[Rfam]
RNA sequence: GAUUUAUUUAGAAGAGGGGAGAGAACAGGCUCUGAGAACCUCUGGCAACCUUCCUCCGGCGGAAAGGUGCCAAUACCUGCCCGAGAGGGAACGAUAAAUU
Numbered sequence: 001g002a003u004u005u006a007u008u009u010a011g012a013a014g015a016g017g018g019g020a021g022a023g024a025a026c027a028g029g030c031u032c033u034g035a036g037a038a039c040c041u042c043u044g045g046c047a048a049c050c051u052u053c054c055u056c057c058g059g060c061g062g063a064a065a066g067g068u069g070c071c072a073a074u075a076c077c078u079g080c081c082c083g084a085g086a087g088g089g090a091a092c093g094a095u096a097a098a099u100u
Base pairs, nucleotide, nucleotide: 001100002099003098004097005096006095007094008093013043014042015041016040017039021032022031023030026079027078028077029076044071045070046069047068049067050066051064052063053062054061080089081088082087
SAM riboswitch aptamer (S box leader): a 100-nucleotide sequence from Lunatimonas lonarensis. NCBI's taxonomy places the organism under Bacteria, Pseudomonadati, Bacteroidota, Cytophagales, Lunatimonas.